[Rfam]
RNA sequence: UCCUUCCAGGCUGUGGUUGCGGACGGCGUGCCUUGCGUGAGCGGGCUCUCGUCCAAGUCCAGGACAGACGCGGUCAAAGGGAUCCACGUAAGCGGUGGCGUGCGCGCCGUCGCGAUCAUGGCGCGUCCUAGAAGUCAGUCGCACCGUCCGACACCUUCGGGGGCACAGGGCCCCUGCGGACGAGCGGGCUAGUCGUGGUGCCGCCGCAGCGGCAGAAGCAAACGUCCCGGUGCGCAAGUGUGGGGUCAAAGACCAGGUCAGCUGGGGGAA
Numbered sequence: 001u002c003c004u005u006c007c008a009g010g011c012u013g014u015g016g017u018u019g020c021g022g023a024c025g026g027c028g029u030g031c032c033u034u035g036c037g038u039g040a041g042c043g044g045g046c047u048c049u050c051g052u053c054c055a056a057g058u059c060c061a062g063g064a065c066a067g068a069c070g071c072g073g074u075c076a077a078a079g080g081g082a083u084c085c086a087c088g089u090a091a092g093c094g095g096u097g098g099c100g101u102g103c104g105c106g107c108c109g110u111c112g113c114g115a116u117c118a119u120g121g122c123g124c125g126u127c128c129u130a131g132a133a134g135u136c137a138g139u140c141g142c143a144c145c146g147u148c149c150g151a152c153a154c155c156u157u158c159g160g161g162g163g164c165a166c167a168g169g170g171c172c173c174c175u176g177c178g179g180a181c182g183a184g185c186g187g188g189c190u191a192g193u194c195g196u197g198g199u200g201c202c203g204c205c206g207c208a209g210c211g212g213c214a215g216a217a218g219c220a221a222a223c224g225u226c227c228c229g230g231u232g233c234g235c236a237a238g239u240g241u242g243g244g245g246u247c248a249a250a251g252a253c254c255a256g257g258u259c260a261g262c263u264g265g266g267g268g269a270a
Stems, first nucleotide, its partner, number of pairs: 001270001003268007011261003014255005061241001063239001064074001067127006083121002088116001094110001097107001119248001140234005145182005186227004195219002201212003
Dot-bracket structure: (.(((((((.((((((((..........................................(.([..((((((.]........((...(.....(..(.........)..).....)..[))))))))............((((((((((............................)))))...((((.....((....(((......))).....))....))))..)))))....).)......]..)))))...)))))))))).)